[Rfam]
RNA sequence: UUUGUUGGCUUGCGGUCGAGGGGUGAGAACCUAGCCAGGUUCGACACCCGAGCAGAGCGAGGGUGAACGUCCGGAGCGCAGCGCAGGACGGCCCCGAAGGGGUGAGGCGCCUUGGCGCCGAAUAAUCCUAGUCCCCCAGCCA
Numbered sequence: 001u002u003u004g005u006u007g008g009c010u011u012g013c014g015g016u017c018g019a020g021g022g023g024u025g026a027g028a029a030c031c032u033a034g035c036c037a038g039g040u041u042c043g044a045c046a047c048c049c050g051a052g053c054a055g056a057g058c059g060a061g062g063g064u065g066a067a068c069g070u071c072c073g074g075a076g077c078g079c080a081g082c083g084c085a086g087g088a089c090g091g092c093c094c095c096g097a098a099g100g101g102g103u104g105a106g107g108c109g110c111c112u113u114g115g116c117g118c119c120g121a122a123u124a125a126u127c128c129u130a131g132u133c134c135c136c137c138a139g140c141c142a
Base pairs, nucleotide, nucleotide: 015133017131019129020128021127024125035101036100040098041097042096043095049059050058068090069089070088071087072086

Notes:
RtT RNA: a 142-nucleotide RNA sequence from Thiohalobacter thiocyanaticus. This family represents a bacterial cis-regulatory element known as RtT RNA. The exact function of RtT is unknown although it is thought that it may be involved in changing the cellular response in relation to amino acid starvation. The base pairs follow the family's consensus structure, which is taken from published work. Gene Ontology term of the family: cellular response to amino acid starvation.